[Rfam]
RNA sequence: CAAGCAGCGUAAAAGGCGUCUGCUAGUAGGACGACCGCAAGGUCAGCCUGCGACACCGUCAAAUUGCGGGAAGUUCCUAAAGCUGAUGCUACCAAGCAUUCGUCGAAAGACGGGUGUGGCCGGGGUAAUGACCUAGGGUACGGUAACAACGCAUCAGAUGCAACAAUGGAUAAUCCGCAGCCAAGCUCUAAGUCCAGCGACUCUCCUCCCGGGGAGUCUUGGAUAUGGGUGCAGUUCAACGACUAAAUGGUGGUGGGUUCUGGUAGGAACGCGGUCUGCGUACCCUCCCAGGGCUUAAGAUAUAGUCUGGCCCCUUGCGAAAGUGAGGG
Dot-bracket structure: .....................................................(((((.((...((((((....(((..........................................................................................)))...))))))((...((((....(((((.....................)))))...))))...))...[.[[[[[..)).))))).(((((((.(((................))).)))))))........]]]]]].....(((((....)))))..
The family of this 329-nucleotide RNA sequence from Neonectria ditissima is "Group I catalytic intron". NCBI's taxonomy places the organism under Eukaryota, leotiomyceta, sordariomyceta, Nectriaceae, Neonectria. The match comes from Rfam's covariance-model search (101 bits). From the family's description: Group I catalytic introns are large self-splicing ribozymes. They catalyse their own excision from mRNA, tRNA and rRNA precursors in a wide range of organisms. The core secondary structure consists of 9 paired regions (P1-P9). These fold to essentially two domains - the P4-P6 domain (formed from the stacking of P5, P4, P6 and P6a helices) and the P3-P9 domain (formed from the P8, P3, P7 and P9 helices). The secondary structure mark-up for this family represents only this conserved core. Group I catalytic introns often have long ORFs inserted in loop regions. The window size for this search is chosen to minimise search time and catch the small examples. A larger window size will find more matches.